[Rfam]
The record is a 245-nucleotide sequence from Plasmodium vivax, which matches "Protozoan signal recognition particle RNA" in Rfam. The family's RNA type in Rfam is non-coding RNA gene. The family is grouped with related families in Rfam's "SRP clan". A reference for the family is Wild et al. (2002), "Towards the structure of the mammalian signal recognition particle", Curr Opin Struct Biol.
RNA sequence: GCAGCUGUAACUUUUAGAGACACGCAAAUUCGUUUGCAAAGAUCAUGGGAUGCUACAAUGUGGAGAGGAUAUUCAACGCCUAAAGUUCGUUCCCGUCUAUCGCAAGACACCAGUUACUGAACAUGUCCUGUUGGAAAGAGAACAUGUUGAAGUAAUGAUGAACUGCAAACCGCCUCAGGCUGGAAACAGAGCAGGGUCAGUGGUCGCUGGUGUACGGUGCGAAGAUUACGGUUGAGCGGGCAAGG
Dot-bracket structure: ..........(.(...............................).)...............................(((...((((((((((((((.(((((..((((((((.(((.(((((((.((.((....)))).)))))))..)))..(...).(((((.....((((....(((....)))....))))..))))).))))))))....)))))))...))))..)))))))).)))
Numbered sequence: 001g002c003a004g005c006u007g008u009a010a011c012u013u014u015u016a017g018a019g020a021c022a023c024g025c026a027a028a029u030u031c032g033u034u035u036g037c038a039a040a041g042a043u044c045a046u047g048g049g050a051u052g053c054u055a056c057a058a059u060g061u062g063g064a065g066a067g068g069a070u071a072u073u074c075a076a077c078g079c080c081u082a083a084a085g086u087u088c089g090u091u092c093c094c095g096u097c098u099a100u101c102g103c104a105a106g107a108c109a110c111c112a113g114u115u116a117c118u119g120a121a122c123a124u125g126u127c128c129u130g131u132u133g134g135a136a137a138g139a140g141a142a143c144a145u146g147u148u149g150a151a152g153u154a155a156u157g158a159u160g161a162a163c164u165g166c167a168a169a170c171c172g173c174c175u176c177a178g179g180c181u182g183g184a185a186a187c188a189g190a191g192c193a194g195g196g197u198c199a200g201u202g203g204u205c206g207c208u209g210g211u212g213u214a215c216g217g218u219g220c221g222a223a224g225a226u227u228a229c230g231g232u233u234g235a236g237c238g239g240g241c242a243a244g245g
Stems, first nucleotide, its partner, number of pairs: 011047001013045001079245003085241008093231004097224002100222005107213008116153003120148007128140002131138002156160001162204005172197004180189003